[Rfam]
RNA sequence: GUCGCUGUAGCGAGGAUUGUAAUUCAGAAAGGCAAAGCCGCGGGCCUGAUCGAUUGUAUGAAACAGCGGGUUCCAGUCGAACAUAGCGAGCAUAAAGCUGGGCAGCGUAUUUGCCACGAACAUCUUCCCCGAGGCGAUCAUGUUUGCGCGUUG
Numbered sequence: 001g002u003c004g005c006u007g008u009a010g011c012g013a014g015g016a017u018u019g020u021a022a023u024u025c026a027g028a029a030a031g032g033c034a035a036a037g038c039c040g041c042g043g044g045c046c047u048g049a050u051c052g053a054u055u056g057u058a059u060g061a062a063a064c065a066g067c068g069g070g071u072u073c074c075a076g077u078c079g080a081a082c083a084u085a086g087c088g089a090g091c092a093u094a095a096a097g098c099u100g101g102g103c104a105g106c107g108u109a110u111u112u113g114c115c116a117c118g119a120a121c122a123u124c125u126u127c128c129c130c131g132a133g134g135c136g137a138u139c140a141u142g143u144u145u146g147c148g149c150g151u152u153g
Base pairs, nucleotide, nucleotide: 002035004033006032008030011027014024015023037057038056040054041052042051043050064153065152066151067150068149070082071081072080073079086147087146088145089144090143091142092141093140098134099133101130102129104126105125107123108122110119111118